[Rfam]
RNA: U1 spliceosomal RNA
RNA sequence: AUACUUACCUGACAUGGAGAUACCAUGAUCACAAAGAUGGUUUUCCCAGGACAAAUCCUAUCCAUUGCACUAUGGAUGUGCUGAACUGUGUGAUUUCCCCAAAUGUGAAAAACUCUGUUGUGUAAUAUGUGAUAACAGGGGAUCUGCAUUUGCCUUCUCCCA
Numbered sequence: 001a002u003a004c005u006u007a008c009c010u011g012a013c014a015u016g017g018a019g020a021u022a023c024c025a026u027g028a029u030c031a032c033a034a035a036g037a038u039g040g041u042u043u044u045c046c047c048a049g050g051a052c053a054a055a056u057c058c059u060a061u062c063c064a065u066u067g068c069a070c071u072a073u074g075g076a077u078g079u080g081c082u083g084a085a086c087u088g089u090g091u092g093a094u095u096u097c098c099c100c101a102a103a104u105g106u107g108a109a110a111a112a113c114u115c116u117g118u119u120g121u122g123u124a125a126u127a128u129g130u131g132a133u134a135a136c137a138g139g140g141g142a143u144c145u146g147c148a149u150u151u152g153c154c155u156u157c158u159c160c161c162a
Stems, first nucleotide, its partner, number of pairs: 012121003016046005022041005048089001050087001055082001057080001059078005092115002094112001095110002099107001138160004146153002